[Rfam]
RNA sequence: CCCUGCAUUCGAAAGUGAUUACGGUCCCGCCCGUGGCCGGGUCAUUGAUAGUGCAGGGAGAGGAAUGCGAGAGUUUUCCCGUGUUUGGGGGAGGGGUCUAUGUCUCCCCCAAACCCUGUUACUGUCGGACA
Numbered sequence: 001c002c003c004u005g006c007a008u009u010c011g012a013a014a015g016u017g018a019u020u021a022c023g024g025u026c027c028c029g030c031c032c033g034u035g036g037c038c039g040g041g042u043c044a045u046u047g048a049u050a051g052u053g054c055a056g057g058g059a060g061a062g063g064a065a066u067g068c069g070a071g072a073g074u075u076u077u078c079c080c081g082u083g084u085u086u087g088g089g090g091g092a093g094g095g096g097u098c099u100a101u102g103u104c105u106c107c108c109c110c111a112a113a114c115c116c117u118g119u120u121a122c123u124g125u126c127g128g129a130c131a
Base pairs, nucleotide, nucleotide: 001058002057003056004055005054006053007052008051009050014046015045016044017043018042019041020040023038024037025036026035068127069126070125072123073122074121083114084113085112086111087110088108089107090106091105

Small nucleolar RNA SNORA71: a 131-nucleotide sequence from Catharus ustulatus. A search with the family's covariance model found it, with a score of 98 bits. Rfam's curators write: The members of this family belong to the H/ACA class of snoRNAs which bind a number of proteins (including dyskerin, Gar1p and Nop10p) to form snoRNP complexes. This class of snoRNAs are thought to guide the sites of modification of uridines to pseudouridines by forming direct base pairing interactions with substrate RNAs. Taxonomically the source falls in Catharus (Eukaryota, Eumetazoa, Gnathostomata, Neognathae).